[Rfam]
RNA: c-di-GMP-I riboswitch aptamer
Organism: Falsibacillus pallidus
RNA sequence: UUGAAAUUGGGGUACACCCAAGGAAACUUGGGGCCACAAAGCUAUAGGGGCUAAGGGGUUAUCCUAAGUCAGCCAGCUGCCAUU
Numbered sequence: 001u002u003g004a005a006a007u008u009g010g011g012g013u014a015c016a017c018c019c020a021a022g023g024a025a026a027c028u029u030g031g032g033g034c035c036a037c038a039a040a041g042c043u044a045u046a047g048g049g050g051c052u053a054a055g056g057g058g059u060u061a062u063c064c065u066a067a068g069u070c071a072g073c074c075a076g077c078u079g080c081c082a083u084u
Stems, first nucleotide, its partner, number of pairs: 012037002017032006040078004047074002049070003056064003